RNA sequence: CGGCUCUCGCGUGACUGGCGAUCUGGAUGGAGCACCAUCGGGAAGCGCGGGGUUUUCGGCCGCGUCGCCUGGGCACCCUUC
Numbered sequence: 001c002g003g004c005u006c007u008c009g010c011g012u013g014a015c016u017g018g019c020g021a022u023c024u025g026g027a028u029g030g031a032g033c034a035c036c037a038u039c040g041g042g043a044a045g046c047g048c049g050g051g052g053u054u055u056u057c058g059g060c061c062g063c064g065u066c067g068c069c070u071g072g073g074c075a076c077c078c079u080u081c
Base pairs, nucleotide, nucleotide: 003054005052006051007050008049009048010047011046012045015042016041017069018068019067020066021065027038028037029036030035059074060073061072
This 81-nucleotide RNA from Sphingomonas sp. JC676 belongs to the Rfam family "ZMP/ZTP riboswitch aptamer (pfl RNA motif)".
The family's consensus secondary structure is taken from published work.
The source organism's lineage runs through Bacteria, Pseudomonadati, Alphaproteobacteria, Sphingomonadales and Sphingomonas.